Rfam assigns this 120-nucleotide RNA sequence from Parafrankia sp. EAN1pec to the family "SAM riboswitch aptamer (S box leader)". The SAM riboswitch is found upstream of a number of genes which code for proteins involved in methionine or cysteine biosynthesis in Gram-positive bacteria. The SAM riboswitch acts at the level of transcription termination control. The predicted structure consists of a complex stem-loop region followed by a single stem loop terminator region. An alternative and mutually exclusive form involves bases in the 3' segment of helix 1 with those in the 5' region of helix 5 to form a structure termed the anti-terminator form. Rfam's curators put it in the seed alignment. Rfam links the family to the GO term regulation of gene expression.
RNA sequence: GGCUCAUCCAGAGGGGCAGAGGGAACGGCCCAGCGAAGCCCCGGCAACCACCGUCGCAUCCAUGCGCGGCAGGUGCUAAUUCCGACCCGGGACGCAGCCGGCUCCCGGGAAAGAUGAGGA
Number, nucleotide and partner (000 for none) at each position: 001g000002g000003c118004u117005c116006a115007u114008c113009c000010a000011g000012a000013g042014g041015g040016g039017c038018a000019g000020a000021g031022g030023g029024a000025a000026c084027g083028g082029c023030c022031c021032a000033g000034c000035g000036a000037a000038g017039c016040c015041c014042c013043g077044g076045c075046a074047a000048c073049c072050a000051c069052c068053g067054u000055c000056g000057c000058a000059u000060c000061c000062a000063u000064g000065c000066g000067c053068g052069g051070c000071a000072g049073g048074u046075g045076c044077u043078a000079a000080u000081u112082c028083c027084g026085a000086c109087c108088c107089g106090g105091g104092a000093c000094g000095c000096a000097g000098c000099c000100g000101g000102c000103u000104c091105c090106c089107g088108g087109g086110a000111a000112a081113g008114a007115u006116g005117a004118g003119g000120a000